[Rfam]
RNA sequence: UCUUCAGUGAGGUACAUCCUUACCUGUUACUCCAUACGUGGAGUAUCAGAACAUGAUGAAUGGACCUUGAUGAGAUAUGAUUAUCAUCUCCAUCUUACAGGGAACUGCAACACCCUGUAAGACCAUUCUGAU
Numbered sequence: 001u002c003u004u005c006a007g008u009g010a011g012g013u014a015c016a017u018c019c020u021u022a023c024c025u026g027u028u029a030c031u032c033c034a035u036a037c038g039u040g041g042a043g044u045a046u047c048a049g050a051a052c053a054u055g056a057u058g059a060a061u062g063g064a065c066c067u068u069g070a071u072g073a074g075a076u077a078u079g080a081u082u083a084u085c086a087u088c089u090c091c092a093u094c095u096u097a098c099a100g101g102g103a104a105c106u107g108c109a110a111c112a113c114c115c116u117g118u119a120a121g122a123c124c125a126u127u128c129u130g131a132u
Base pairs, nucleotide, nucleotide: 024049025048026047028045029044030043031042032041033040072090073089075087076086078083094121095120096119097118098117099116100115101114102113
Rfam assigns this 132-nucleotide RNA sequence from Labrus bergylta to the family "U8 small nucleolar RNA". Its family is annotated with RNA processing and nucleolus in the Gene Ontology. Pairs were carried over by alignment from the consensus structure, which is taken from published work.